The record is a 128-nucleotide sequence from Oncorhynchus tshawytscha, which matches "Small nucleolar RNA SNORA71" in Rfam. Lineage of the source: Eukaryota > Euteleosteomorpha > Salmonidae > Salmoninae > Oncorhynchus. The family's consensus secondary structure was predicted with PFOLD. Rfam describes the family as follows. The members of this family belong to the H/ACA class of snoRNAs which bind a number of proteins (including dyskerin, Gar1p and Nop10p) to form snoRNP complexes. This class of snoRNAs are thought to guide the sites of modification of uridines to pseudouridines by forming direct base pairing interactions with substrate RNAs. This family includes U71 (SNORA71), ACA39 (SNORA39) and ACA60 (SNORA60). Rfam classes the family as an H/ACA-box small nucleolar RNA.
RNA sequence: CCCUGUGUCGAAAGUGACUGUGGCCUUUUUGGUGGCCAGGUCAUUGAUAGUACAGGAACAGUGAAAUGAGAGCCUUCCCCGUGUUUGAUGGGCCCUUUGUCCCUACCAAACCCUGGUUCUCUCAUACA
Numbered sequence: 001c002c003c004u005g006u007g008u009c010g011a012a013a014g015u016g017a018c019u020g021u022g023g024c025c026u027u028u029u030u031g032g033u034g035g036c037c038a039g040g041u042c043a044u045u046g047a048u049a050g051u052a053c054a055g056g057a058a059c060a061g062u063g064a065a066a067u068g069a070g071a072g073c074c075u076u077c078c079c080c081g082u083g084u085u086u087g088a089u090g091g092g093c094c095c096u097u098u099g100u101c102c103c104u105a106c107c108a109a110a111c112c113c114u115g116g117u118u119c120u121c122u123c124a125u126a127c128a
Stems, first nucleotide, its partner, number of pairs: 002056007013045007022037004065125001067124006083111005090103003
For this family Rfam cites "The family of box ACA small nucleolar RNAs is defined by an evolutionarily conserved secondary structure and ubiquitous sequence elements essential for RNA accumulation" (Ganot et al., Genes Dev, 1997). Rfam links the family to the GO terms RNA processing and nucleolus.